The family of this 55-nucleotide RNA sequence is "nhaA-I RNA". Rfam describes the family as follows. Acidobacteria, Alphaproteobacteria, Betaproteobacteria and Gammaproteobacteria, Verrucomicrobia, cand. division NC10. Pairs were carried over by alignment from the consensus structure, which is taken from published work. By type it is a riboswitch.

[Rfam]
RNA sequence: GGGUCCGAGGGCACUGACGCCCUCGGAGGUCAACCGGAUGGUCGGGCCACCAUCC
Number, nucleotide and partner (000 for none) at each position: 001g000002g000003g000004u000005c026006c025007g024008a023009g022010g021011g020012c019013a000014c000015u000016g000017a000018c000019g012020c011021c010022c009023u008024c007025g006026g005027a000028g000029g000030u000031c000032a000033a000034c000035c000036g055037g054038a053039u052040g051041g050042u049043c000044g000045g000046g000047c000048c000049a042050c041051c040052a039053u038054c037055c036